[Rfam]
RNA: rhtB sRNA
Organism: Candidatus Pelagibacter sp. HTCC7211
RNA sequence: GAGUGAUAUUAUGUAUUUGAUAGUCCUUCUUAGCCAUCUUUAGCUCCCGGUUUUUAAGGACUAUCCACGCAUACUUAAAAUGU
Numbered sequence: 001g002a003g004u005g006a007u008a009u010u011a012u013g014u015a016u017u018u019g020a021u022a023g024u025c026c027u028u029c030u031u032a033g034c035c036a037u038c039u040u041u042a043g044c045u046c047c048c049g050g051u052u053u054u055u056a057a058g059g060a061c062u063a064u065c066c067a068c069g070c071a072u073a074c075u076u077a078a079a080a081u082g083u
Stems, first nucleotide, its partner, number of pairs: 019065009032052004